[Rfam]
RNA sequence: ACCUGUGUCGAAAGUGACUGUGGAGCCACCGUCUCCAGGUCAUUGAUAAAACAGGAAGAGGAAGUGAAAAACUUUCCCGUGUUUGCUGGAUCCUGUUCCUGACAAACCCUGAAUCUUUCACACA
Numbered sequence: 001a002c003c004u005g006u007g008u009c010g011a012a013a014g015u016g017a018c019u020g021u022g023g024a025g026c027c028a029c030c031g032u033c034u035c036c037a038g039g040u041c042a043u044u045g046a047u048a049a050a051a052c053a054g055g056a057a058g059a060g061g062a063a064g065u066g067a068a069a070a071a072c073u074u075u076c077c078c079g080u081g082u083u084u085g086c087u088g089g090a091u092c093c094u095g096u097u098c099c100u101g102a103c104a105a106a107c108c109c110u111g112a113a114u115c116u117u118u119c120a121c122a123c124a
Stems, first nucleotide, its partner, number of pairs: 002055005008049001013044007022036004064121006071114001081107005086101001088099003
Small nucleolar RNA SNORA71: a 124-nucleotide RNA sequence from Sinocyclocheilus rhinocerous.
Rfam classes the family as an H/ACA-box small nucleolar RNA.
Rfam links the family to the GO terms RNA processing and nucleolus.
The family's consensus secondary structure was predicted with PFOLD.
About the family: The members of this family belong to the H/ACA class of snoRNAs which bind a number of proteins (including dyskerin, Gar1p and Nop10p) to form snoRNP complexes. This class of snoRNAs are thought to guide the sites of modification of uridines to pseudouridines by forming direct base pairing interactions with substrate RNAs. This family includes U71 (SNORA71), ACA39 (SNORA39) and ACA60 (SNORA60). U71 and ACA60 are predicted to guide the pseudouridylation of U406 and U1004 in 18S rRNA respectively. There is currently no target RNA identified for ACA39.
For this family Rfam cites "The family of box ACA small nucleolar RNAs is defined by an evolutionarily conserved secondary structure and ubiquitous sequence elements essential for RNA accumulation" (Ganot et al., Genes Dev, 1997).